Notes
RAGATH-18 RNA: a 66-nucleotide RNA. Rfam describes the family as follows. Actinobacteria, Firmicutes, Fusobacteria, Thermotogae (1 example). Pairs were carried over by alignment from the consensus structure, which is taken from published work. Rfam's curators put it in the seed alignment. The family's RNA type in Rfam is small RNA.
RNA sequence: UCUGUGGAUCGUCAUAUCAAAUGAGAGUAGUUAUUAACAACAAAAUCAGACGGGAUGAAGCAGAAA
Dot-bracket structure: (((((...(((((........(((.....(((......)))....))))))))......)))))..